[Rfam]
Background
The family of this 76-nucleotide RNA sequence from Xenopus tropicalis is "mir-25 microRNA precursor family". Pairs were carried over by alignment from the consensus structure, which was predicted with RNAalifold. A reference for the family is Linsen et al. (2010), "Small RNA expression and strain specificity in the rat", BMC Genomics.
RNA sequence: GGCCAGUGUUGGGGGGGCCGGUGGCAGGGCAGGCUGCUGUCUUUGUGCCCUGCCACCGGCCCCCCCAACACUGGCC
Dot-bracket structure: ((((.((((....((((.(((((((((((((((......))....))))))))))))).))))....)))).))))

Rfam links the family to the GO terms miRNA-mediated post-transcriptional gene silencing and RISC complex. Lineage of the source: Eukaryota > Craniata > Dipnotetrapodomorpha > Pipidae > Silurana.